Shown here is a 130-nucleotide RNA sequence from Pseudolycoriella hygida, a member of the family "U11 spliceosomal RNA".
Its Rfam clan is "U1 clan".
The match comes from Rfam's covariance-model search (79 bits).
The family's RNA type in Rfam is spliceosomal small nuclear RNA.
Lineage of the source: Eukaryota > Opisthokonta > Ecdysozoa > Arthropoda > Pseudolycoriella.
RNA sequence: UAAAAGGGUGCUCACUUUACUCCACAUAGUGCAUCGCGUUAAUCGCGAUGGGGUAUGGCUAUCAAGACAUACCCAGCACAUAAUUUUUGAAUUUAGGGGACAUCAGUCGCUACUGUGCACAGACGCCCCA
Numbered sequence: 001u002a003a004a005a006g007g008g009u010g011c012u013c014a015c016u017u018u019a020c021u022c023c024a025c026a027u028a029g030u031g032c033a034u035c036g037c038g039u040u041a042a043u044c045g046c047g048a049u050g051g052g053g054u055a056u057g058g059c060u061a062u063c064a065a066g067a068c069a070u071a072c073c074c075a076g077c078a079c080a081u082a083a084u085u086u087u088u089g090a091a092u093u094u095a096g097g098g099g100a101c102a103u104c105a106g107u108c109g110c111u112a113c114u115g116u117g118c119a120c121a122g123a124c125g126c127c128c129c130a
Base pairs, nucleotide, nucleotide: 008079009078010077011076012075013031014030015029016028032050033049034048035047036046037045038044051074052073053072054071055070056069057068097128098127099126103123104122106120109118110117